[Rfam]
Nucleotides: 084
Base pairs, nucleotide, nucleotide: 012037013036017032018031019030021028022027040078041077042076043075046073047072048069049068050067055063056062057061
Number, partner (000 for none) and nucleotide at each position: 001000a002000u003000a004000u005000a006000g007000c008000a009000u010000a011000g012037g013036c014000a015000a016000a017032c018031c019030u020000u021028c022027u023000g024000a025000a026000a027022a028021g029000u030019g031018g032017g033000g034000a035000c036013g037012c038000a039000a040078a041077g042076c043075c044000a045000c046073g047072g048069g049068u050067c051000u052000a053000a054000g055063a056062c057061a058000a059000u060000u061057u062056g063055u064000u065000a066000a067050g068049a069048u070000a071000g072047c073046c074000a075043g076042g077041u078040u079000g080000c081000a082000a083000a084000g